[Rfam]
RNA sequence: GGCUGGUCCGAUGGUAGUGGGUUAUCAGAACUUAUUAACAUUAGUGUCACCAAAGUUGGUAUACAACCCUGCCUCACACCCAGCUAAAUCUGACUGGCUUAAA
Numbered sequence: 001g002g003c004u005g006g007u008c009c010g011a012u013g014g015u016a017g018u019g020g021g022u023u024a025u026c027a028g029a030a031c032u033u034a035u036u037a038a039c040a041u042u043a044g045u046g047u048c049a050c051c052a053a054a055g056u057u058g059g060u061a062u063a064c065a066a067c068c069c070u071g072c073c074u075c076a077c078a079c080c081c082a083g084c085u086a087a088a089u090c091u092g093a094c095u096g097g098c099u100u101a102a103a
Stems, first nucleotide, its partner, number of pairs: 001099008010091001015086001017077005033061003037057002

The record is a 103-nucleotide RNA sequence from Callithrix jacchus, which matches "Y RNA" in Rfam. The family's consensus secondary structure is taken from published work. The family has 104 seed sequences and 26,986 matches in Rfam 15.1. The organism belongs to Callithrix, within Eukaryota.